Shown here is a 162-nucleotide sequence, a member of the family "Streptomyces sRNA scr5239". Gene Ontology terms of the family: negative regulation of translation and mRNA binding.
[Rfam]
RNA sequence: CCUCCGCUCUCCCCGCACAGGAGAGUGGACCGAGGAACCGGCACUCUCUGCCCUGACCGUGUCGGGUCCUCAAGAUCGGCUGUUCAGUACCGCACAUUCUGGCGGCCGAUGCACCUGAAGGGCUGCGGUGCCGUGGGCGGGCUGAGGGUCCCGCCCUGGCGC
Numbered sequence: 001c002c003u004c005c006g007c008u009c010u011c012c013c014c015g016c017a018c019a020g021g022a023g024a025g026u027g028g029a030c031c032g033a034g035g036a037a038c039c040g041g042c043a044c045u046c047u048c049u050g051c052c053c054u055g056a057c058c059g060u061g062u063c064g065g066g067u068c069c070u071c072a073a074g075a076u077c078g079g080c081u082g083u084u085c086a087g088u089a090c091c092g093c094a095c096a097u098u099c100u101g102g103c104g105g106c107c108g109a110u111g112c113a114c115c116u117g118a119a120g121g122g123c124u125g126c127g128g129u130g131c132c133g134u135g136g137g138c139g140g141g142c143u144g145a146g147g148g149u150c151c152c153g154c155c156c157u158g159g160c161g162c
Base pairs, nucleotide, nucleotide: 003029004028005027006026008024009023010022011021012020032071033070034069035068036067038065039064040063041062043060044059045056046055076109077108078107079106080105081104082103086100087099112130113129114128115127120124135156136155137154138153139152140151141150
The literature on the family includes a 2015 paper in PLoS One by Vockenhuber et al., "Identification of metE as a second target of the sRNA scr5239 in Streptomyces coelicolor". Pairs were carried over by alignment from the consensus structure, which is taken from published work.